[Rfam]
RNA sequence: AAACGAGACGGCGAUGGAGUUCGCCGCAACCGCCAUCGGCGCCAGCCGGGGGCUGAUGACUCCUACCCAGUG
Numbered sequence: 001a002a003a004c005g006a007g008a009c010g011g012c013g014a015u016g017g018a019g020u021u022c023g024c025c026g027c028a029a030c031c032g033c034c035a036u037c038g039g040c041g042c043c044a045g046c047c048g049g050g051g052g053c054u055g056a057u058g059a060c061u062c063c064u065a066c067c068c069a070g071u072g
Base pairs, nucleotide, nucleotide: 010025011024012023013022016063017062018061019060020059021058032053033052034051
The family of this 72-nucleotide RNA from Thiomonas delicata is "Fluoride riboswitch aptamer (crcB RNA motif)". The base pairs follow the family's consensus structure, which is taken from published work. A search with the family's covariance model found it, with a score of 55 bits. Taxonomically the source falls in Thiomonas (Bacteria, Pseudomonadati, Betaproteobacteria, Burkholderiales).